[Rfam]
RNA: mir-130 microRNA precursor family
Organism: Ornithorhynchus anatinus
RNA sequence: UCCAAAGCCCGGGCUCUUUCCACUGAGCCACCACCCAUCACCAGCGGCCGGACACACGAGUACACGGGCAGAAGCAGCGUGGCUCAGUGGAAAGGGCACGGGCUUCGGA
Numbered sequence: 001u002c003c004a005a006a007g008c009c010c011g012g013g014c015u016c017u018u019u020c021c022a023c024u025g026a027g028c029c030a031c032c033a034c035c036c037a038u039c040a041c042c043a044g045c046g047g048c049c050g051g052a053c054a055c056a057c058g059a060g061u062a063c064a065c066g067g068g069c070a071g072a073a074g075c076a077g078c079g080u081g082g083c084u085c086a087g088u089g090g091a092a093a094g095g096g097c098a099c100g101g102g103c104u105u106c107g108g109a
Stems, first nucleotide, its partner, number of pairs: 001109003006104006013097019